[Rfam]
RNA: THF (Tetrahydrofolate) riboswitch aptamer
Organism: Ruminococcus sp. CAG:330
RNA sequence: ACCAGAGUAGGAAACGGUGCGUUAAGUGUCCGGCAGACGGGGAGUUGCUGCCGGGACGAAAAAUUCAGGACAGUGUCCCGAAUUUGCGGUGCCGAUUCCGCAUCCCGCUGAA
Numbered sequence: 001a002c003c004a005g006a007g008u009a010g011g012a013a014a015c016g017g018u019g020c021g022u023u024a025a026g027u028g029u030c031c032g033g034c035a036g037a038c039g040g041g042g043a044g045u046u047g048c049u050g051c052c053g054g055g056a057c058g059a060a061a062a063a064u065u066c067a068g069g070a071c072a073g074u075g076u077c078c079c080g081a082a083u084u085u086g087c088g089g090u091g092c093c094g095a096u097u098c099c100g101c102a103u104c105c106c107g108c109u110g111a112a
Stems, first nucleotide, its partner, number of pairs: 003110003010099004015094005020088003026057002029055008040105003044101001061085006